[Rfam]
RNA sequence: GAAGCAGAUGACGAUAAAACAGACAGGGACAUCUGUACCUUUGUAAAUUGGGUUGAUGACAAGUCUUUGGAAUCUUUCUGAUGUUUC
Number, nucleotide and partner (000 for none) at each position: 001g000002a086003a085004g084005c083006a082007g000008a000009u000010g000011a000012c000013g000014a000015u000016a000017a000018a000019a000020c000021a000022g000023a000024c000025a000026g000027g000028g000029a000030c000031a000032u000033c000034u000035g000036u000037a000038c000039c000040u000041u000042u000043g000044u000045a000046a000047a000048u000049u000050g000051g000052g000053u000054u000055g000056a000057u000058g000059a000060c000061a000062a000063g000064u000065c000066u000067u000068u000069g000070g000071a000072a000073u000074c000075u000076u000077u000078c000079u000080g000081a000082u006083g005084u004085u003086u002087c000

Background
The record is an 87-nucleotide sequence from Zostera marina, which matches "Small nucleolar RNA R44/J54/Z268 family" in Rfam. Rfam 15.1 lists 1,168 matches to the family in 228 species. The family is grouped with related families in Rfam's "SNORD74 clan". The family's consensus secondary structure was predicted with PFOLD.